[Rfam]
RNA sequence: GGGCAAGGAUCAAAGGUUUAGAACGCGACAUCCUGUCGCAACACCUUUGUGACCCGCUUCCUACGGG
Numbered sequence: 001g002g003g004c005a006a007g008g009a010u011c012a013a014a015g016g017u018u019u020a021g022a023a024c025g026c027g028a029c030a031u032c033c034u035g036u037c038g039c040a041a042c043a044c045c046u047u048u049g050u051g052a053c054c055c056g057c058u059u060c061c062u063a064c065g066g067g
Stems, first nucleotide, its partner, number of pairs: 011049007025039005053067004
Dot-bracket structure: ..........(((((((.......(((((.....)))))...)))))))...((((.......))))
A member of the RNA family "Bacillaceae-1 RNA" from Domibacillus epiphyticus, 67 nucleotides long. It is annotated as a small RNA. The family's consensus secondary structure is taken from published work. The organism belongs to Domibacillus, within Bacteria. The family has 95 seed sequences and 5,721 matches in Rfam 15.1.